[Rfam]
RNA sequence: CUGGGGGCACACGACUGGCGCGGGUGGGGCACCACCGGGGAGUGCACGCGUGGGUAUCGCCCGCCUGGGUGCCCGCA
Numbered sequence: 001c002u003g004g005g006g007g008c009a010c011a012c013g014a015c016u017g018g019c020g021c022g023g024g025u026g027g028g029g030c031a032c033c034a035c036c037g038g039g040g041a042g043u044g045c046a047c048g049c050g051u052g053g054g055u056a057u058c059g060c061c062c063g064c065c066u067g068g069g070u071g072c073c074c075g076c077a
Stems, first nucleotide, its partner, number of pairs: 003049001005047001007045001010044003015039002017065004024035004054072005
RNA: ZMP/ZTP riboswitch aptamer (pfl RNA motif)